[Rfam]
Nucleotides: 060
Stems, first nucleotide, its partner, number of pairs: 002060001004058002012052005021042006
Number, partner (000 for none) and nucleotide at each position: 001000g002060c003000c004058c005057a006000u007000a008000u009000g010000a011000u012052g013051a014050a015049g016048c017000a018000a019000a020000u021042c022041a023040g024039u025038a026037u027000g028000a029000g030000u031000a032000a033000a034000a035000u036000g037026a038025u039024a040023c041022u042021g043000u044000a045000a046000a047000c048016g049015c050014u051013u052012u053000c054000u055000g056000a057005u058004g059000u060002g